Overview: The family of this 80-nucleotide RNA sequence is "KDPG-aldolase RNA". Rfam classes the family as a small RNA. Rfam's curators put it in the seed alignment.
RNA sequence: GGUACGGCCGGACGCCUGCGCUUUAAUGCGUGGGGCCCUGUGGCAGGGGCGUGCCAUUGAUAACCCGUAAGUAAUGGAGA
Numbered sequence: 001g002g003u004a005c006g007g008c009c010g011g012a013c014g015c016c017u018g019c020g021c022u023u024u025a026a027u028g029c030g031u032g033g034g035g036c037c038c039u040g041u042g043g044c045a046g047g048g049g050c051g052u053g054c055c056a057u058u059g060a061u062a063a064c065c066c067g068u069a070a071g072u073a074a075u076g077g078a079g080a
Stems, first nucleotide, its partner, number of pairs: 001055006015034006066071001